[Rfam]
RNA sequence: CACCGGAACUCUGGAGAGAGGCGCGGGAGCGUCCGCCGACGGGACAACGAUCUCAGGCGAAAGGACAGAGGGGGCGCG
Numbered sequence: 001c002a003c004c005g006g007a008a009c010u011c012u013g014g015a016g017a018g019a020g021g022c023g024c025g026g027g028a029g030c031g032u033c034c035g036c037c038g039a040c041g042g043g044a045c046a047a048c049g050a051u052c053u054c055a056g057g058c059g060a061a062a063g064g065a066c067a068g069a070g071g072g073g074g075c076g077c078g
Base pairs, nucleotide, nucleotide: 009070010069011068012067013066020033021032022031023030035058036057037056038054039053042052043051

Shown here is a 78-nucleotide RNA sequence from Amaricoccus solimangrovi, a member of the family "Glycine riboswitch aptamer". This family represents the bacterial glycine riboswitch. Glycine riboswitches usually consist of two metabolite-binding aptamers domains with similar structures in tandem. The aptamers cooperatively bind glycine to regulate the expression of downstream genes. It scores 42 bits against the family's covariance model. NCBI's taxonomy places the organism under Bacteria, Pseudomonadati, Alphaproteobacteria, Paracoccaceae, Amaricoccus. Pairs were carried over by alignment from the consensus structure.